[Rfam]
Rfam assigns this 92-nucleotide sequence from Cyclopterus lumpus to the family "mir-146 microRNA precursor family". A search with the family's covariance model found it, with a score of 61 bits. Pairs were carried over by alignment from the consensus structure, which was predicted with WAR.
RNA sequence: CUAAGUGUCGUACUAUGAGAACUGAAUUCCAUAGAUGGUGGCAGCUUCAGGUUUCAUCUAUGGGCUCAGUUCUUUUGGUAUGGUGCUAAUUU
Numbered sequence: 001c002u003a004a005g006u007g008u009c010g011u012a013c014u015a016u017g018a019g020a021a022c023u024g025a026a027u028u029c030c031a032u033a034g035a036u037g038g039u040g041g042c043a044g045c046u047u048c049a050g051g052u053u054u055c056a057u058c059u060a061u062g063g064g065c066u067c068a069g070u071u072c073u074u075u076u077g078g079u080a081u082g083g084u085g086c087u088a089a090u091u092u
Base pairs, nucleotide, nucleotide: 008083009082011080012079013078018073019072020071021070022069023068024067025066033059034058035057036056

Lineage of the source: Eukaryota > Metazoa > Bilateria > Perciformes > Cyclopterus.